[Rfam]
RNA sequence: GGCGAUAAACGGAUUGUGUAAUAAACCAUUCGGACCCGGGGGCAGUACCCGGCGCCUCCACCAAUUUUCCCUGUCGCGGCAGGGACCUUGGGGGCGAACCAGGAUCGACGAGGGUGUAAAGACAGUCUUUUUGCCCGGCAUGGUUCCGCCGUCAUCGGGCCGUUUUAUAGUUGCCAACGACAACUAUGCUGAGGCGCGUCUCGCUGCUUAA
Numbered sequence: 001g002g003c004g005a006u007a008a009a010c011g012g013a014u015u016g017u018g019u020a021a022u023a024a025a026c027c028a029u030u031c032g033g034a035c036c037c038g039g040g041g042g043c044a045g046u047a048c049c050c051g052g053c054g055c056c057u058c059c060a061c062c063a064a065u066u067u068u069c070c071c072u073g074u075c076g077c078g079g080c081a082g083g084g085a086c087c088u089u090g091g092g093g094g095c096g097a098a099c100c101a102g103g104a105u106c107g108a109c110g111a112g113g114g115u116g117u118a119a120a121g122a123c124a125g126u127c128u129u130u131u132u133g134c135c136c137g138g139c140a141u142g143g144u145u146c147c148g149c150c151g152u153c154a155u156c157g158g159g160c161c162g163u164u165u166u167a168u169a170g171u172u173g174c175c176a177a178c179g180a181c182a183a184c185u186a187u188g189c190u191g192a193g194g195c196g197c198g199u200c201u202c203g204c205u206g207c208u209u210a211a
Stems, first nucleotide, its partner, number of pairs: 001135005014125004026114002030111003036052005053096007136151004
A member of the RNA family "permuted transfer-messenger RNA" from Parvibaculum lavamentivorans, 211 nucleotides long. Rfam classes the family as a non-coding RNA gene. The base pairs follow the family's consensus structure, which is taken from published work. It scores 141 bits against the family's covariance model.